[Rfam]
RNA sequence: GUACAAAACGGAUGUAAUACUCGUAUAAUCUGGACGAUAAGGGUUCAGGGUUUCUACAGGAGAGCCAUAUUUCUCCGAGCUACGGGUCUUCUAUUGAAAAUA
Numbered sequence: 001g002u003a004c005a006a007a008a009c010g011g012a013u014g015u016a017a018u019a020c021u022c023g024u025a026u027a028a029u030c031u032g033g034a035c036g037a038u039a040a041g042g043g044u045u046c047a048g049g050g051u052u053u054c055u056a057c058a059g060g061a062g063a064g065c066c067a068u069a070u071u072u073c074u075c076c077g078a079g080c081u082a083c084g085g086g087u088c089u090u091c092u093a094u095u096g097a098a099a100a101u102a
Base pairs, nucleotide, nucleotide: 019087020086021085022084023083024082025081029049030048031047032046033045034044035043059076060075061074062073063072064071